[Rfam]
RNA: Molybdenum/Tungsten riboswitch aptamer (Moco RNA motif)
RNA sequence: UAGAAUCAUUGACUCCGAGCGAAGUAAUCUAAGGGCAACGCCUAUGAUUAUGAGCCGUCAGCUUCCAUAUAUAUAUCUGGAAGGACUGGCCGGGGUUGGGAUGGAAACAGACCAGCCUUCCCUUUUUGAAAAGGAGCCUUAAGAGACUGCCGC
Numbered sequence: 001u002a003g004a005a006u007c008a009u010u011g012a013c014u015c016c017g018a019g020c021g022a023a024g025u026a027a028u029c030u031a032a033g034g035g036c037a038a039c040g041c042c043u044a045u046g047a048u049u050a051u052g053a054g055c056c057g058u059c060a061g062c063u064u065c066c067a068u069a070u071a072u073a074u075a076u077c078u079g080g081a082a083g084g085a086c087u088g089g090c091c092g093g094g095g096u097u098g099g100g101a102u103g104g105a106a107a108c109a110g111a112c113c114a115g116c117c118u119u120c121c122c123u124u125u126u127u128g129a130a131a132a133g134g135a136g137c138c139u140u141a142a143g144a145g146a147c148u149g150c151c152g153c
Base pairs, nucleotide, nucleotide: 003147006144011138013136014135015134016133019055020054024051025050026049027048028047029046033043034042035041036040057090058089059088060087061086093118094117095116096115097114098113099112102109103108119129120128